[Rfam]
RNA: Small nucleolar RNA SNORA11
Organism: Cervus elaphus
RNA sequence: GAGGUGUGCUCAGAGUAGGGGGCCUGAAGAAAUGGCUCCUUUGCUUACAACACACCCAAUAGGAAUCUGGGUUCAUUGUAACAAGAGGCACAAAAUUUGUGGUCUUCUAUGAACAAGUAUCCAACACAU
Numbered sequence: 001g002a003g004g005u006g007u008g009c010u011c012a013g014a015g016u017a018g019g020g021g022g023c024c025u026g027a028a029g030a031a032a033u034g035g036c037u038c039c040u041u042u043g044c045u046u047a048c049a050a051c052a053c054a055c056c057c058a059a060u061a062g063g064a065a066u067c068u069g070g071g072u073u074c075a076u077u078g079u080a081a082c083a084a085g086a087g088g089c090a091c092a093a094a095a096u097u098u099g100u101g102g103u104c105u106u107c108u109a110u111g112a113a114c115a116a117g118u119a120u121c122c123a124a125c126a127c128a129u
Base pairs, nucleotide, nucleotide: 003056004055005054006053007052008051013046014045015044016043017042018041019040020039021038022036023035024034070122071121073119077115078114079113082111083110085104086103089101090100091099092098093097